[Rfam]
RNA sequence: CUCUGAAGGCAGCAGCACAGAAGUAAGGGUGGCAUGGUAUGAAUUGGCACCCCUACUUCUGCGCUGCUUUCUUCAGAG
Numbered sequence: 001c002u003c004u005g006a007a008g009g010c011a012g013c014a015g016c017a018c019a020g021a022a023g024u025a026a027g028g029g030u031g032g033c034a035u036g037g038u039a040u041g042a043a044u045u046g047g048c049a050c051c052c053c054u055a056c057u058u059c060u061g062c063g064c065u066g067c068u069u070u071c072u073u074c075a076g077a078g
Stems, first nucleotide, its partner, number of pairs: 001078003005074003011068006018061001020058001022057004027052003

This 78-nucleotide RNA sequence from Chrysemys picta belongs to the Rfam family "mir-16 microRNA precursor family". NCBI's taxonomy places the organism under Eukaryota, Opisthokonta, Eumetazoa, Amniota, Chrysemys picta. It scores 37 bits against the family's covariance model. The family's consensus secondary structure was predicted with PFOLD.